RNA sequence: CGAGACCCCUUGACGACCGCGACCCAAGUUCUGUGCAGGACGCGGGUUGAGGAACUUCCGGGCUCCGUAGAGCACGAUGGCGGAUAACGUCCGCCCAGGGUGACCUGAGAGACAGCGCAGCAGAAAACAGACCGCCGGUCUAGGCCGGUAAGGGUGAAACGGCGGUGUAAGAGACCACCGGACCGCUGGCAACAGUCGGUCGCAUGGCAAGCCUCAUCGGGAGCAAGGCCAAGCAGAAGGCGUUUGAGGGCUGCUCGUCCGAUGCCUUCGGGUAGGCUGCUGGAGCUUGGCGGCGACGUCAAGUCGAGAUGGAUGGUCGUCCAUGCCACCUCGCGUGGCAUGACAGAACCCGGGGUAUAAGGGGUCUCGCUUU
Numbered sequence: 001c002g003a004g005a006c007c008c009c010u011u012g013a014c015g016a017c018c019g020c021g022a023c024c025c026a027a028g029u030u031c032u033g034u035g036c037a038g039g040a041c042g043c044g045g046g047u048u049g050a051g052g053a054a055c056u057u058c059c060g061g062g063c064u065c066c067g068u069a070g071a072g073c074a075c076g077a078u079g080g081c082g083g084a085u086a087a088c089g090u091c092c093g094c095c096c097a098g099g100g101u102g103a104c105c106u107g108a109g110a111g112a113c114a115g116c117g118c119a120g121c122a123g124a125a126a127a128c129a130g131a132c133c134g135c136c137g138g139u140c141u142a143g144g145c146c147g148g149u150a151a152g153g154g155u156g157a158a159a160c161g162g163c164g165g166u167g168u169a170a171g172a173g174a175c176c177a178c179c180g181g182a183c184c185g186c187u188g189g190c191a192a193c194a195g196u197c198g199g200u201c202g203c204a205u206g207g208c209a210a211g212c213c214u215c216a217u218c219g220g221g222a223g224c225a226a227g228g229c230c231a232a233g234c235a236g237a238a239g240g241c242g243u244u245u246g247a248g249g250g251c252u253g254c255u256c257g258u259c260c261g262a263u264g265c266c267u268u269c270g271g272g273u274a275g276g277c278u279g280c281u282g283g284a285g286c287u288u289g290g291c292g293g294c295g296a297c298g299u300c301a302a303g304u305c306g307a308g309a310u311g312g313a314u315g316g317u318c319g320u321c322c323a324u325g326c327c328a329c330c331u332c333g334c335g336u337g338g339c340a341u342g343a344c345a346g347a348a349c350c351c352g353g354g355g356u357a358u359a360a361g362g363g364g365u366c367u368c369g370c371u372u373u
Base pairs, nucleotide, nucleotide: 001369002368003367004366005365006364007363008362009361010360012321013320014319015318016317017316018315020049021048022047023046024045025044028041029040030039031038054356055355056354058353059352060351061350062349063223064222065221066220070256071255072254073253075219076218077217078216079215080094081093082092083091084090095109096107097106098105099104110214111213115212116211117208118207132153133152134149135148136147137146138145139144161179162178164176165175166174180203181201182200183199184198185197186195187194188193227278228277229276230275236269237268238267239266240265241264248260249259250258251257285304286303287302288301289300290299291298292297

Bacterial RNase P class A: a 373-nucleotide sequence from Bifidobacterium jacchi. From the family's description: Ribonuclease P (RNase P) is a ubiquitous endoribonuclease, found in archaea, bacteria and eukarya as well as chloroplasts and mitochondria. The source organism's lineage runs through Bacteria, Bacillati, Bifidobacteriales, Bifidobacteriaceae and Bifidobacterium. Rfam classes the family as a ribozyme.